[Rfam]
Shown here is a 77-nucleotide sequence from Castor canadensis, a member of the family "Small nucleolar RNA SNORD69". Taxonomically the source falls in Castor (Eukaryota, Bilateria, Vertebrata, Boreoeutheria). From the family's description: snoRNA HBII-210 belongs to the C/D family of snoRNAs. It is the human orthologue of the mouse MBII-210 and is predicted to guide the 2'O-ribose methylation of large 28S rRNA on residue G4464. The base pairs follow the family's consensus structure.
RNA sequence: AACAUGAAGCAAAUGAUGAUAAAUUGUGUCUGACUCACUGUGUUGAAUUUGUUCAAUCCAACCCUGAGCUUCAUGUU
Numbered sequence: 001a002a003c004a005u006g007a008a009g010c011a012a013a014u015g016a017u018g019a020u021a022a023a024u025u026g027u028g029u030c031u032g033a034c035u036c037a038c039u040g041u042g043u044u045g046a047a048u049u050u051g052u053u054c055a056a057u058c059c060a061a062c063c064c065u066g067a068g069c070u071u072c073a074u075g076u077u
Stems, first nucleotide, its partner, number of pairs: 001077010